This 109-nucleotide RNA sequence from Oryza glumipatula belongs to the Rfam family "MIR1428 microRNA precursor family". Rfam links the family to the GO terms miRNA-mediated post-transcriptional gene silencing and RISC complex.

RNA sequence: AAGUUUCGUGAAUUCACAGGCUCUAUCUUGUGGUAUGAACUGAGUACAUGGUGAUUAUGGUGAGUAUUGGGGUCUUACCAUAAGUCAAGGUCGUGAAUUCGCGAAACUU
Numbered sequence: 001a002a003g004u005u006u007c008g009u010g011a012a013u014u015c016a017c018a019g020g021c022u023c024u025a026u027c028u029u030g031u032g033g034u035a036u037g038a039a040c041u042g043a044g045u046a047c048a049u050g051g052u053g054a055u056u057a058u059g060g061u062g063a064g065u066a067u068u069g070g071g072g073u074c075u076u077a078c079c080a081u082a083a084g085u086c087a088a089g090g091u092c093g094u095g096a097a098u099u100c101g102c103g104a105a106a107c108u109u
Stems, first nucleotide, its partner, number of pairs: 002108015019092003024087001027084009037074001040071002043068004049062002